This 133-nucleotide sequence from Pteropus vampyrus belongs to the Rfam family "U11 spliceosomal RNA". The literature on the family includes a 2008 paper in J Mol Evol by Marz et al., "Evolution of spliceosomal snRNA genes in metazoan animals". The match comes from Rfam's covariance-model search (96 bits). It is annotated as a spliceosomal small nuclear RNA.
RNA sequence: AAAAAGGGCUUCUCUCGUGCGUGGCUCACUAGGGAAGCUUGGUUGCUCUUCGUGUGGAAUCGACAUCAAGAGAUUUCGGAAGCAUAAUUUUUUGGUACUUGGGCAGCUAGUGAUCGUUGGUCCUGGCACUCCC
Numbered sequence: 001a002a003a004a005a006g007g008g009c010u011u012c013u014c015u016c017g018u019g020c021g022u023g024g025c026u027c028a029c030u031a032g033g034g035a036a037g038c039u040u041g042g043u044u045g046c047u048c049u050u051c052g053u054g055u056g057g058a059a060u061c062g063a064c065a066u067c068a069a070g071a072g073a074u075u076u077c078g079g080a081a082g083c084a085u086a087a088u089u090u091u092u093u094g095g096u097a098c099u100u101g102g103g104c105a106g107c108u109a110g111u112g113a114u115c116g117u118u119g120g121u122c123c124u125g126g127c128a129c130u131c132c133c
Stems, first nucleotide, its partner, number of pairs: 008083005015024003027054003031049004036044002055078007101131003106127005112122004